[Rfam]
RNA: Fluoride riboswitch aptamer (crcB RNA motif)
RNA sequence: GAAAUCCCUGGCAAUGGAGUUUGCCGUCCCGCCGGUUCGAAGUACUUGGGAAAACCUCCUUUCUUGAAAAGAAAGGCUGAUAACUCCUACUUCAAC
Numbered sequence: 001g002a003a004a005u006c007c008c009u010g011g012c013a014a015u016g017g018a019g020u021u022u023g024c025c026g027u028c029c030c031g032c033c034g035g036u037u038c039g040a041a042g043u044a045c046u047u048g049g050g051a052a053a054a055c056c057u058c059c060u061u062u063c064u065u066g067a068a069a070a071g072a073a074a075g076g077c078u079g080a081u082a083a084c085u086c087c088u089a090c091u092u093c094a095a096c
Stems, first nucleotide, its partner, number of pairs: 010025004016087006058076007